[Rfam]
RNA sequence: UUAAAUAAGCUUGCAUUUACUCAUAUAAUCACGAGAAUAAGGCUCGUAAGUUUCUACCAAGCUACCGUAAAUGGCUUGACUAUGGGUGAGCAAUGGGAUAUC
Numbered sequence: 001u002u003a004a005a006u007a008a009g010c011u012u013g014c015a016u017u018u019a020c021u022c023a024u025a026u027a028a029u030c031a032c033g034a035g036a037a038u039a040a041g042g043c044u045c046g047u048a049a050g051u052u053u054c055u056a057c058c059a060a061g062c063u064a065c066c067g068u069a070a071a072u073g074g075c076u077u078g079a080c081u082a083u084g085g086g087u088g089a090g091c092a093a094u095g096g097g098a099u100a101u102c
Stems, first nucleotide, its partner, number of pairs: 018088008029049001031047005058078007
Purine riboswitch aptamer: a 102-nucleotide sequence from Heyndrickxia oleronia. Gene Ontology term of the family: purine nucleobase biosynthetic process. Lineage of the source: Bacteria > Bacillati > Bacillota > Bacilli > Heyndrickxia.